[Rfam]
mir-19 microRNA precursor family: an 81-nucleotide RNA sequence from Callorhinchus milii. A reference for the family is Lagos-Quintana et al. (2001), "Identification of novel genes coding for small expressed RNAs", Science. The match comes from Rfam's covariance-model search (81 bits). Lineage of the source: Eukaryota > Opisthokonta > Deuterostomia > Chordata > Callorhinchus. The base pairs follow the family's consensus structure, which was predicted with RNAalifold.
RNA sequence: GUUUCUAGUUAGUUUUGCAGGUUUGCAUUCAGCUGUCAAAGUACAAGUGCUGUGCAAAUCCAUGCAAAACUGACUGUAGCA
Numbered sequence: 001g002u003u004u005c006u007a008g009u010u011a012g013u014u015u016u017g018c019a020g021g022u023u024u025g026c027a028u029u030c031a032g033c034u035g036u037c038a039a040a041g042u043a044c045a046a047g048u049g050c051u052g053u054g055c056a057a058a059u060c061c062a063u064g065c066a067a068a069a070c071u072g073a074c075u076g077u078a079g080c081a
Base pairs, nucleotide, nucleotide: 003079004078006076007075008074009073010072011071012070013069014068015067016066017065018064019063020061021060022058023057024056025055026054027053028052031051032050033049